Rfam assigns this 58-nucleotide RNA from Halosaccharopolyspora lacisalsi to the family "F6 TB sRNA". For this family Rfam cites "Identification of small RNAs in Mycobacterium tuberculosis" (Arnvig and Young, Mol Microbiol, 2009). It scores 62 bits against the family's covariance model. Rfam classes the family as a small RNA. The base pairs follow the family's consensus structure, which is taken from published work. NCBI's taxonomy places the organism under Bacteria, Bacillati, Actinomycetes, Pseudonocardiaceae, Halosaccharopolyspora. The family has 16 seed sequences and 310 matches in Rfam 15.1.
[Rfam]
RNA sequence: CGGAGUGACUCCGUGAUGCUGUCGGACCCCCGACCUGGCAGCAUCACGGGGCCUUCCA
Numbered sequence: 001c002g003g004a005g006u007g008a009c010u011c012c013g014u015g016a017u018g019c020u021g022u023c024g025g026a027c028c029c030c031c032g033a034c035c036u037g038g039c040a041g042c043a044u045c046a047c048g049g050g051g052c053c054u055u056c057c058a
Stems, first nucleotide, its partner, number of pairs: 002057004007052001009051015
Dot-bracket structure: .((((.(.(((((((((((((((.............)))))))))))))))).)))).